[Rfam]
RNA sequence: UCAUCAUGCCCUCCGUGGGCGUUUCCUCCCUGAGCCUGGGCCACGCUUAACCGCGUGGCCAUUUUUUUUUGAGAGU
Numbered sequence: 001u002c003a004u005c006a007u008g009c010c011c012u013c014c015g016u017g018g019g020c021g022u023u024u025c026c027u028c029c030c031u032g033a034g035c036c037u038g039g040g041c042c043a044c045g046c047u048u049a050a051c052c053g054c055g056u057g058g059c060c061a062u063u064u065u066u067u068u069u070u071g072a073g074a075g076u
Stems, first nucleotide, its partner, number of pairs: 008020004039060008
Shown here is a 76-nucleotide RNA sequence from Kordiimonas sediminis, a member of the family "Makes More Granules Regulator RNA (mmgR)".
The source organism's lineage runs through Bacteria, Pseudomonadati, Kordiimonadales, Kordiimonadaceae and Kordiimonas.
It is annotated as a small RNA.